[Rfam]
Nucleotides: 066
Stems, first nucleotide, its partner, number of pairs: 001065004
Number, partner (000 for none) and nucleotide at each position: 001065c002064u003063g004062c005000a006000a007000u008000a009000a010000u011000g012000g013000c014000a015000c016000u017000u018000c019000u020000u021000a022000a023000g024000a025000u026000a027000c028000a029000u030000u031000u032000g033000a034000a035000a036000u037000c038000a039000u040000c041000a042000u043000g044000a045000a046000a047000a048000c049000a050000a051000c052000u053000a054000c055000u056000c057000u058000c059000u060000g061000a062004g063003u064002a065001g066000c